Notes:
Shown here is a 162-nucleotide RNA sequence from Acetobacter estunensis, a member of the family "FMN riboswitch aptamer (RFN element)". A search with the family's covariance model found it, with a score of 116 bits. About the family: The RFN element is a highly conserved domain that is found frequently in the 5'-untranslated regions of prokaryotic mRNAs that encode for flavin mononucleotide (FMN) biosynthesis and transport proteins.

RNA sequence: AGACGUUCUCAGGGCGGGGUGCAAUUCCCCACCGGCGGUAACCGGUUUUUCUCUUGUGAGAUGGAUCGGAAGCCCGCGAGCGCCUUCCUCAUCUGGGGAAGGGUCAGCAGAUCCGGUGUGAUUCCGGAGCCGACGGUAUAGUCCGGAUGAGAGAGAGCGGCG
Numbered sequence: 001a002g003a004c005g006u007u008c009u010c011a012g013g014g015c016g017g018g019g020u021g022c023a024a025u026u027c028c029c030c031a032c033c034g035g036c037g038g039u040a041a042c043c044g045g046u047u048u049u050u051c052u053c054u055u056g057u058g059a060g061a062u063g064g065a066u067c068g069g070a071a072g073c074c075c076g077c078g079a080g081c082g083c084c085u086u087c088c089u090c091a092u093c094u095g096g097g098g099a100a101g102g103g104u105c106a107g108c109a110g111a112u113c114c115g116g117u118g119u120g121a122u123u124c125c126g127g128a129g130c131c132g133a134c135g136g137u138a139u140a141g142u143c144c145g146g147a148u149g150a151g152a153g154a155g156a157g158c159g160g161c162g
Base pairs, nucleotide, nucleotide: 004159005158006157007156008155009154010153017029018028019027031142032141033132034131035077036076037075038074072130073129080108081107112128113127114126115125116124134145135144136143